Annotation: t44 RNA: a 96-nucleotide RNA from Pseudomonas sp. StFLB209. It is annotated as a small RNA. This family consists of a number of bacterial RNA genes of between 135 and 170 bases in length. The organism belongs to Pseudomonas, within Bacteria.

[Rfam]
RNA sequence: GCCCCUGGAGCAUAAACCCACACACGUGUCGACACGAUGACCUGGGUGCCGUUGGCAAAGCCGCCGGUUGGUCAUUGGGAUGCGUGGAGGCCUAAC
Numbered sequence: 001g002c003c004c005c006u007g008g009a010g011c012a013u014a015a016a017c018c019c020a021c022a023c024a025c026g027u028g029u030c031g032a033c034a035c036g037a038u039g040a041c042c043u044g045g046g047u048g049c050c051g052u053u054g055g056c057a058a059a060g061c062c063g064c065c066g067g068u069u070g071g072u073c074a075u076u077g078g079g080a081u082g083c084g085u086g087g088a089g090g091c092c093u094a095a096c
Base pairs, nucleotide, nucleotide: 023086024085025084026083027082028081029080030079035077036076037075038074039073040072041071042070048068049067050066051065
It scores 70 bits against the family's covariance model.